Annotation
The record is an 82-nucleotide RNA sequence from Paenibacillus donghaensis, which matches "c-di-GMP-I-GGC riboswitch aptamer" in Rfam. It scores 72 bits against the family's covariance model.
RNA sequence: CACGAUAACGGCAAACCUGUCGAAAGGCAGGGACGCAAAGCUAAAGGGCCUUUUCCACAAGGAUGGCAGCCAGCUACCGAAA
Numbered sequence: 001c002a003c004g005a006u007a008a009c010g011g012c013a014a015a016c017c018u019g020u021c022g023a024a025a026g027g028c029a030g031g032g033a034c035g036c037a038a039a040g041c042u043a044a045a046g047g048g049c050c051u052u053u054u055c056c057a058c059a060a061g062g063a064u065g066g067c068a069g070c071c072a073g074c075u076a077c078c079g080a081a082a
Base pairs, nucleotide, nucleotide: 003079004078011036012035016031017030018029019028020027021026034069039075040074041073042072046071047070048067049066050065